[Rfam]
RNA sequence: UGCCGAGAAAAUCCUCGGUAGUUAACUGCCGCUGGUUUACUAAAACUUCGACAGUUAACUGCCGAAGGGCAU
Numbered sequence: 001u002g003c004c005g006a007g008a009a010a011a012u013c014c015u016c017g018g019u020a021g022u023u024a025a026c027u028g029c030c031g032c033u034g035g036u037u038u039a040c041u042a043a044a045a046c047u048u049c050g051a052c053a054g055u056u057a058a059c060u061g062c063c064g065a066a067g068g069g070c071a072u
Stems, first nucleotide, its partner, number of pairs: 012068002015065014